[Rfam]
RNA sequence: CAUUAGGUUGGUGCAAAAGUAAUUGCGGUUUCUGCCAUUGAAAGUGAUGGGAGAAACUGCAAUUACUUUUGCACCAACCUAAUA
Numbered sequence: 001c002a003u004u005a006g007g008u009u010g011g012u013g014c015a016a017a018a019g020u021a022a023u024u025g026c027g028g029u030u031u032c033u034g035c036c037a038u039u040g041a042a043a044g045u046g047a048u049g050g051g052a053g054a055a056a057c058u059g060c061a062a063u064u065a066c067u068u069u070u071g072c073a074c075c076a077a078c079c080u081a082a083u084a
Base pairs, nucleotide, nucleotide: 002083003082004081005080006079007078008077009076010075011074012073013072014071015070016069017068018067019066020065021064022063023062024061025060026059027058028057029056030055031054032053033052035050036049037048038047039046040045
Rfam assigns this 84-nucleotide RNA sequence from Rhinopithecus bieti to the family "mir-548 microRNA precursor family".
Gene Ontology terms of the family: RISC complex and miRNA-mediated post-transcriptional gene silencing.
Rfam 15.1 lists 3,009 matches to the family in 27 species.
The source organism's lineage runs through Eukaryota, Chordata, Craniata, Mammalia and Rhinopithecus.
A search with the family's covariance model found it, with a score of 92 bits.